[Rfam]
RNA sequence: UAAGAGUUGAUUCGUCCUCUUAUUUGAAGUUUGAGGACAUAAAAAAGGCGAAUUCAAUCAUAAAUACUUGAUUGAAUCGGCGAAGC
Numbered sequence: 001u002a003a004g005a006g007u008u009g010a011u012u013c014g015u016c017c018u019c020u021u022a023u024u025u026g027a028a029g030u031u032u033g034a035g036g037a038c039a040u041a042a043a044a045a046a047g048g049c050g051a052a053u054u055c056a057a058u059c060a061u062a063a064a065u066a067c068u069u070g071a072u073u074g075a076a077u078c079g080g081c082g083a084a085g086c
Stems, first nucleotide, its partner, number of pairs: 001022006053076008
The record is an 86-nucleotide RNA, which matches "RAGATH-28 RNA" in Rfam.
The family's consensus secondary structure is taken from published work.